[Rfam]
RNA: Nuclear RNase P
RNA sequence: UCCUCUUCAACGCUGCGUUUCUAUGCUACAAACGGAGAGAUGUACGCGCAAGCGGAAGUCUCUCAUUCUACCAAACUGGCAUAUGAGAAAUUCGGAGUAACUUCUUCACACCACUCACCCAAUGUCGCCUGCCUAGUGCGGGAUGACGGGUCUGCCCGCGAGGGUCUGGCGUGAUUUCACGUCUGCAAUUGGCAUCAGAAAAGCAGGGCCCGGGCCGUUCUCAUGUAUACCCUAAUUUCCUCUGGGAAGAGGGGGAAGAUGAGCUCUGGACUCGGUGUCCCUAUGGGAGAGCCGUUGCGAAAAGAUUGUGCAGAGCACUUGAGUGCGAUACGCAGCGUCUGGAUCCUGGCUGGCCUCGGCUGGCCAGGGACUUGACAAUUCAAUUCCGAUCAUUCUGUUGAGGA
Numbered sequence: 001u002c003c004u005c006u007u008c009a010a011c012g013c014u015g016c017g018u019u020u021c022u023a024u025g026c027u028a029c030a031a032a033c034g035g036a037g038a039g040a041u042g043u044a045c046g047c048g049c050a051a052g053c054g055g056a057a058g059u060c061u062c063u064c065a066u067u068c069u070a071c072c073a074a075a076c077u078g079g080c081a082u083a084u085g086a087g088a089a090a091u092u093c094g095g096a097g098u099a100a101c102u103u104c105u106u107c108a109c110a111c112c113a114c115u116c117a118c119c120c121a122a123u124g125u126c127g128c129c130u131g132c133c134u135a136g137u138g139c140g141g142g143a144u145g146a147c148g149g150g151u152c153u154g155c156c157c158g159c160g161a162g163g164g165u166c167u168g169g170c171g172u173g174a175u176u177u178c179a180c181g182u183c184u185g186c187a188a189u190u191g192g193c194a195u196c197a198g199a200a201a202a203g204c205a206g207g208g209c210c211c212g213g214g215c216c217g218u219u220c221u222c223a224u225g226u227a228u229a230c231c232c233u234a235a236u237u238u239c240c241u242c243u244g245g246g247a248a249g250a251g252g253g254g255g256a257a258g259a260u261g262a263g264c265u266c267u268g269g270a271c272u273c274g275g276u277g278u279c280c281c282u283a284u285g286g287g288a289g290a291g292c293c294g295u296u297g298c299g300a301a302a303a304g305a306u307u308g309u310g311c312a313g314a315g316c317a318c319u320u321g322a323g324u325g326c327g328a329u330a331c332g333c334a335g336c337g338u339c340u341g342g343a344u345c346c347u348g349g350c351u352g353g354c355c356u357c358g359g360c361u362g363g364c365c366a367g368g369g370a371c372u373u374g375a376c377a378a379u380u381c382a383a384u385u386c387c388g389a390u391c392a393u394u395c396u397g398u399u400g401a402g403g404a
Stems, first nucleotide, its partner, number of pairs: 001404004008397002012336007022083004035064006093388005101313002104310001154165004168183005185309006206293002337376003341372002